[Rfam]
RNA sequence: AAUGAAUGAUGACAAGAUGUUUCGGUCCCAAAUGACAUGGAAUGAUUCUACUUUCCUACUUUCUGACAUU
Numbered sequence: 001a002a003u004g005a006a007u008g009a010u011g012a013c014a015a016g017a018u019g020u021u022u023c024g025g026u027c028c029c030a031a032a033u034g035a036c037a038u039g040g041a042a043u044g045a046u047u048c049u050a051c052u053u054u055c056c057u058a059c060u061u062u063c064u065g066a067c068a069u070u
Stems, first nucleotide, its partner, number of pairs: 001070004
RNA: Small nucleolar RNA SNORD73